Annotation: Rfam assigns this 108-nucleotide RNA sequence from Gouania willdenowi to the family "Small nucleolar RNA SNORD46". It scores 60 bits against the family's covariance model. The source organism's lineage runs through Eukaryota, Eumetazoa, Ctenosquamata, Blenniimorphae and Gouania. The family is grouped with related families in Rfam's "SNORD46 clan". U40 is a C/D box small nucleolar RNA, also known as snoZ153 in plants. The human sequence has also been annotated in the sequence databases as U46. U40 is encoded in intron 2 of the ribosomal protein S8 gene in human, and is hypothesised to guide methylation of 2'-O-ribose residues on 28S ribosomal RNA. This family represents vertebrate U40. On this family, see Nicoloso et al., J Mol Biol 1996: "Intron-encoded, antisense small nucleolar RNAs: the characterization of nine novel species points to their direct role as guides for the 2'-O-ribose methylation of rRNAs".

[Rfam]
Nucleotides: 108
Stems, first nucleotide, its partner, number of pairs: 002107005
Number, partner (000 for none) and nucleotide at each position: 001000u002107g003106c004105g005104u006103g007000g008000g009000u010000g011000a012000u013000g014000a015000a016000a017000a018000c019000u020000u021000g022000a023000c024000c025000u026000u027000a028000g029000g030000c031000g032000g033000c034000u035000c036000u037000u038000u039000u040000u041000g042000g043000g044000u045000c046000g047000u048000u049000u050000u051000g052000g053000c054000c055000c056000a057000a058000a059000g060000u061000u062000u063000g064000g065000g066000g067000g068000c069000u070000u071000g072000c073000c074000g075000a076000u077000g078000u079000u080000u081000g082000g083000a084000c085000u086000u087000g088000u089000c090000a091000u092000a093000g094000u095000u096000a097000c098000a099000c100000u101000g102000a103006c104005a105004c106003g107002c108000c